[Rfam]
RNA sequence: GUGCACAGUGAACACCCAAGGGUGCUAACGUGGCUCCCCCUGGUAUCUUGUAACUGUGCUACAGUAAAUCUGAUCUGUACCUCUGCAUUAGAAGAGUAUUUUUCUCCCCUACAUGUAUUCAACAGAUCAGAACAAUC
Numbered sequence: 001g002u003g004c005a006c007a008g009u010g011a012a013c014a015c016c017c018a019a020g021g022g023u024g025c026u027a028a029c030g031u032g033g034c035u036c037c038c039c040c041u042g043g044u045a046u047c048u049u050g051u052a053a054c055u056g057u058g059c060u061a062c063a064g065u066a067a068a069u070c071u072g073a074u075c076u077g078u079a080c081c082u083c084u085g086c087a088u089u090a091g092a093a094g095a096g097u098a099u100u101u102u103u104c105u106c107c108c109c110u111a112c113a114u115g116u117a118u119u120c121a122a123c124a125g126a127u128c129a130g131a132a133c134a135a136u137c
Stems, first nucleotide, its partner, number of pairs: 003059006013050002016043003020039001022036001024034003061076001063074001065072002084121002086115003090110002094106003

The record is a 137-nucleotide RNA sequence from Channa argus, which matches "Small nucleolar RNA SNORA22" in Rfam. It is annotated as an H/ACA-box small nucleolar RNA. Rfam's curators write: ACA22 is a member of the H/ACA class of snoRNA that guide the sites of modification of uridines to pseudouridines.